[Rfam]
RNA: Glycine riboswitch aptamer
RNA sequence: GGAGCUACUUCUGGAGAGUUCGUCUAGACGACACCGAAGGAUUCACAAUCUCAGGUAAAAGGACAGAAGACAACAC
Numbered sequence: 001g002g003a004g005c006u007a008c009u010u011c012u013g014g015a016g017a018g019u020u021c022g023u024c025u026a027g028a029c030g031a032c033a034c035c036g037a038a039g040g041a042u043u044c045a046c047a048a049u050c051u052c053a054g055g056u057a058a059a060a061g062g063a064c065a066g067a068a069g070a071c072a073a074c075a076c
Stems, first nucleotide, its partner, number of pairs: 008069006020031004033056003036052002040050003